[Rfam]
Nucleotides: 068
Base pairs, nucleotide, nucleotide: 010026011025012024013023016059017058018057019056020055021054038049039048040047041046
Number, partner (000 for none) and nucleotide at each position: 001000a002000a003000u004000u005000a006000a007000a008000a009000a010026g011025g012024a013023a014000a015000u016059g017058g018057u019056g020055u021054u022000c023013u024012u025011c026010c027000u028000u029000a030000a031000c032000c033000a034000a035000a036000c037000c038049g039048c040047u041046u042000u043000a044000g045000c046041a047040a048039g049038c050000u051000g052000a053000u054021g055020a056019c057018g058017c059016c060000u061000g062000a063000u064000u065000g066000a067000u068000a